A member of the RNA family "Iron response element I" from Gulo gulo, 36 nucleotides long. Rfam classes the family as a cis-regulatory element. Gene Ontology term of the family: response to iron ion. A search with the family's covariance model found it, with a score of 36 bits. A reference for the family is Hentze et al. (1987), "Identification of the iron-responsive element for the translational regulation of human ferritin mRNA", Science.
[Rfam]
RNA sequence: CGGGUUCCUGCUUCAGCAGUGCUUGGGCAGAACCCG
Number, nucleotide and partner (000 for none) at each position: 001c036002g035003g034004g033005u032006u031007c030008c000009u000010g028011c000012u027013u026014c025015a024016g023017c021018a000019g000020u000021g017022c000023u016024u015025g014026g013027g012028c010029a000030g007031a006032a005033c004034c003035c002036g001